[Rfam]
RNA sequence: UCGCGGGUGACUGCGAAUCUGAAGGAAGCCGGCGGCAAAUCUCUGGUCUGACGAACAGAAAUCACAUCAGGCAACGGUUAAGGAUAAGGCUGCAUAACAUGUCGAAGUCCAAUAACUACUCGGAAUUAACCGCUGUAAAUGUGGCAGAUGUAUGGAGAGAAGGAUUGCGCU
Numbered sequence: 001u002c003g004c005g006g007g008u009g010a011c012u013g014c015g016a017a018u019c020u021g022a023a024g025g026a027a028g029c030c031g032g033c034g035g036c037a038a039a040u041c042u043c044u045g046g047u048c049u050g051a052c053g054a055a056c057a058g059a060a061a062u063c064a065c066a067u068c069a070g071g072c073a074a075c076g077g078u079u080a081a082g083g084a085u086a087a088g089g090c091u092g093c094a095u096a097a098c099a100u101g102u103c104g105a106a107g108u109c110c111a112a113u114a115a116c117u118a119c120u121c122g123g124a125a126u127u128a129a130c131c132g133c134u135g136u137a138a139a140u141g142u143g144g145c146a147g148a149u150g151u152a153u154g155g156a157g158a159g160a161a162g163g164a165u166u167g168c169g170c171u
Base pairs, nucleotide, nucleotide: 001016002015003014004013005012006011028171030169031168036163040158041157042156043155044154045153046149047148048147049146050145062144063143064142065141066140071136072135073134075132076131077130078129079128080127081126082110083109084108085107088103089102090101
RNA: Group II catalytic intron D1-D4-3
Organism: Fusibacter sp. A1